Shown here is a 96-nucleotide RNA sequence from Gossypium mustelinum, a member of the family "Plastid-rps12 3UTR RNA". Rfam's curators write: Plastid rpl20 is a non-coding RNA (ncRNA) recognised in plastids. The family has 1,299 seed sequences and 1,710 matches in Rfam 15.1. Rfam classes the family as a cis-regulatory element. Pairs were carried over by alignment from the consensus structure, which was predicted with LocARNA.

RNA sequence: GGUUUCUAUUGGAGCAAAUCCAAUCUUGGAAUUUAAAAUGAGAAAAAAUUCUCCAUUGGUAGCAAAUGUUUAUCCAUUAAACGGGGAAAAUCCUAU
Dot-bracket structure: ........((((.......))))...........................((((((.(((((.......))))).)).....))))..........